[Rfam]
RNA sequence: UUGCCCGUUUGACUACCACAUUUUCUCCUAAUAGAUUUUGGUAGCUAUGCUUAUGGGAUAGAUUAAAAUUGCCCUGAUCUGAAAAGAGAGGAUUUAUUUGUGUCCUCUUCCUGUAUGAAAUGGCUGAACAGAAAAAA
Numbered sequence: 001u002u003g004c005c006c007g008u009u010u011g012a013c014u015a016c017c018a019c020a021u022u023u024u025c026u027c028c029u030a031a032u033a034g035a036u037u038u039u040g041g042u043a044g045c046u047a048u049g050c051u052u053a054u055g056g057g058a059u060a061g062a063u064u065a066a067a068a069u070u071g072c073c074c075u076g077a078u079c080u081g082a083a084a085a086g087a088g089a090g091g092a093u094u095u096a097u098u099u100g101u102g103u104c105c106u107c108u109u110c111c112u113g114u115a116u117g118a119a120a121u122g123g124c125u126g127a128a129c130a131g132a133a134a135a136a137a
Stems, first nucleotide, its partner, number of pairs: 004057004016044001018042002071124003089112004
Notes
The record is a 137-nucleotide sequence from Molossus molossus, which matches "Small nucleolar RNA SNORA29" in Rfam. The match comes from Rfam's covariance-model search (140 bits). The literature on the family includes a 2001 paper in EMBO J by Huttenhofer et al., "RNomics: an experimental approach that identifies 201 candidates for novel, small, non-messenger RNAs in mouse". Taxonomically the source falls in Molossus (Eukaryota, Craniata, Euteleostomi, Boreoeutheria). Rfam's curators write: ACA29 is a member of the H/ACA class of snoRNA that guide the sites of modification of uridines to pseudouridines. The family is grouped with related families in Rfam's "SNORA20 clan".